Rfam assigns this 108-nucleotide RNA sequence from Echeneis naucrates to the family "Vault RNA".

[Rfam]
RNA sequence: GCACUGGUUUAGCUCAGUGGUUACUUCCAUCAACAUUUCUUUCUCAAAAGAAUACGCUGAUCUCCAUCCCUCUGUGGGAUCGAACCACGGGCACUGUCCAGUGCUUUC
Numbered sequence: 001g002c003a004c005u006g007g008u009u010u011a012g013c014u015c016a017g018u019g020g021u022u023a024c025u026u027c028c029a030u031c032a033a034c035a036u037u038u039c040u041u042u043c044u045c046a047a048a049a050g051a052a053u054a055c056g057c058u059g060a061u062c063u064c065c066a067u068c069c070c071u072c073u074g075u076g077g078g079a080u081c082g083a084a085c086c087a088c089g090g091g092c093a094c095u096g097u098c099c100a101g102u103g104c105u106u107u108c
Base pairs, nucleotide, nucleotide: 002103003102004101005100006099007098012092013091014090015089017088018087019086020085025084026083027082029080030079031078
Overview
Rfam describes the family as follows. This family of RNAs are found as part of the enigmatic vault ribonucleoprotein complex.